Record summary
PyrR binding site: a 131-nucleotide RNA sequence from Caldibacillus debilis. Rfam classes the family as a cis-regulatory element. Rfam links the family to the GO terms pyrimidine nucleobase transport and pyrimidine nucleobase biosynthetic process. The organism belongs to Caldibacillus debilis, within Bacteria.
Nucleotides: 131
Base pairs, nucleotide, nucleotide: 003038004037005036006035007034008033015030016029017028018027019026059091060090062088063087064086066084068083069082071080072079073078095125096124097123098122099121100120101119102118103117104116105115106114107113
Number, partner (000 for none) and nucleotide at each position: 001000u002000c003038u004037a005036c006035c007034u008033u009000u010000a011000a012000a013000a014000a015030c016029a017028g018027u019026c020000c021000u022000g023000u024000g025000a026019g027018g028017c029016u030015g031000g032000c033008a034007a035006g036005g037004u038003a039000a040000g041000a042000g043000a044000u045000c046000a047000u048000a049000c050000a051000u052000g053000g054000c055000a056000a057000a058000u059091g060090c061000a062088u063087g064086u065000a066084g067000u068083g069082g070000g071080g072079c073078g074000u075000u076000u077000g078073c079072g080071c081000a082069c083068u084066u085000c086064a087063c088062a089000a090060g091059c092000g093000g094000c095125a096124a097123a098122c099121a100120c101119c102118u103117u104116g105115c106114c107113u108000g109000a110000a111000a112000c113107a114106g115105g116104c117103a118102g119101g120100g121099u122098g123097u124096u125095u126000u127000u128000u129000u130000g131000u